Rfam assigns this 394-nucleotide RNA sequence from Emticicia sp. TH156 to the family "Bacterial RNase P class A".
The family's consensus secondary structure is taken from published work.
The family is grouped with related families in Rfam's "RNaseP clan".
Rfam's curators write: Ribonuclease P (RNase P) is a ubiquitous endoribonuclease, found in archaea, bacteria and eukarya as well as chloroplasts and mitochondria.
RNA sequence: AAAGCGGGCCGUCUUAUCGCUGCUACGAGGUGCAAACUGAAGAGUUGAGGAAAGUCCGAACAGUGCAGAGCAUCAUGCUACCUAACGGGUAGGGGGGAAUCGGGCGACUGAUUGCCUACAGCCAGUGCCACAGAAAAUAUACCGCCGCAAGGUAAGGGUGAAAAGGUAGAGUAAGAGCCUACCGCUUGUCUGGUGACAGACAGGGCAUGGUAAACCUCAUGAACUGAAAGACCAAAUAAACCGACACAGCCAUCUGCAAAGAUAGCUUAAGGGCUGCUCGCCCGAGUCGGAGGGUAGGUUGAUAGAAGCAGCAGGCAACUGUUGUUCCAGAUAAAUGAUAAGACUUUAGCAGAAAUGUUAAAGACAGAAUUCGGCUUACAGGCUCGCUUUUUUC
Numbered sequence: 001a002a003a004g005c006g007g008g009c010c011g012u013c014u015u016a017u018c019g020c021u022g023c024u025a026c027g028a029g030g031u032g033c034a035a036a037c038u039g040a041a042g043a044g045u046u047g048a049g050g051a052a053a054g055u056c057c058g059a060a061c062a063g064u065g066c067a068g069a070g071c072a073u074c075a076u077g078c079u080a081c082c083u084a085a086c087g088g089g090u091a092g093g094g095g096g097g098a099a100u101c102g103g104g105c106g107a108c109u110g111a112u113u114g115c116c117u118a119c120a121g122c123c124a125g126u127g128c129c130a131c132a133g134a135a136a137a138u139a140u141a142c143c144g145c146c147g148c149a150a151g152g153u154a155a156g157g158g159u160g161a162a163a164a165g166g167u168a169g170a171g172u173a174a175g176a177g178c179c180u181a182c183c184g185c186u187u188g189u190c191u192g193g194u195g196a197c198a199g200a201c202a203g204g205g206c207a208u209g210g211u212a213a214a215c216c217u218c219a220u221g222a223a224c225u226g227a228a229a230g231a232c233c234a235a236a237u238a239a240a241c242c243g244a245c246a247c248a249g250c251c252a253u254c255u256g257c258a259a260a261g262a263u264a265g266c267u268u269a270a271g272g273g274c275u276g277c278u279c280g281c282c283c284g285a286g287u288c289g290g291a292g293g294g295u296a297g298g299u300u301g302a303u304a305g306a307a308g309c310a311g312c313a314g315g316c317a318a319c320u321g322u323u324g325u326u327c328c329a330g331a332u333a334a335a336u337g338a339u340a341a342g343a344c345u346u347u348a349g350c351a352g353a354a355a356u357g358u359u360a361a362a363g364a365c366a367g368a369a370u371u372c373g374g375c376u377u378a379c380a381g382g383c384u385c386g387c388u389u390u391u392u393u394c
Stems, first nucleotide, its partner, number of pairs: 001390010011379001012343007020047001022045003052377003056374005061226004068279004073222005078092005093119001094117003120217002125215002127211003142157002144153003165183005184206001185204008230300004241290005271283004307326008